[Rfam]
RNA sequence: GGGUGACCUUGCGACUGGCGCAUCGAGGUGGAGCUCACCACCGGGGAGCGACGAGUACGGCACCGCGCGCCUGGGUGCCGCUC
Numbered sequence: 001g002g003g004u005g006a007c008c009u010u011g012c013g014a015c016u017g018g019c020g021c022a023u024c025g026a027g028g029u030g031g032a033g034c035u036c037a038c039c040a041c042c043g044g045g046g047a048g049c050g051a052c053g054a055g056u057a058c059g060g061c062a063c064c065g066c067g068c069g070c071c072u073g074g075g076u077g078c079c080g081c082u083c
Stems, first nucleotide, its partner, number of pairs: 003056002007053001009051004015045002017071005028041004060078005

The family of this 83-nucleotide RNA sequence from Actinoallomurus bryophytorum is "ZMP/ZTP riboswitch aptamer (pfl RNA motif)". It scores 50 bits against the family's covariance model. The organism belongs to Actinoallomurus, within Bacteria.